[Rfam]
RNA sequence: UAAUAGAUCGCGGCGUGUGCCUUUAGGGGCCAGAUGAUUGGUUAGGCCAGUUAGUUAAAGCCCAAAGGGAUAUACGGAAAGGCCGCAUGUCCACUCCCUUUGGGUUUUGCUAG
Numbered sequence: 001u002a003a004u005a006g007a008u009c010g011c012g013g014c015g016u017g018u019g020c021c022u023u024u025a026g027g028g029g030c031c032a033g034a035u036g037a038u039u040g041g042u043u044a045g046g047c048c049a050g051u052u053a054g055u056u057a058a059a060g061c062c063c064a065a066a067g068g069g070a071u072a073u074a075c076g077g078a079a080a081g082g083c084c085g086c087a088u089g090u091c092c093a094c095u096c097c098c099u100u101u102g103g104g105u106u107u108u109g110c111u112a113g
Stems, first nucleotide, its partner, number of pairs: 010086005017030002020027002038050004051113005057107001061104010076092003080088001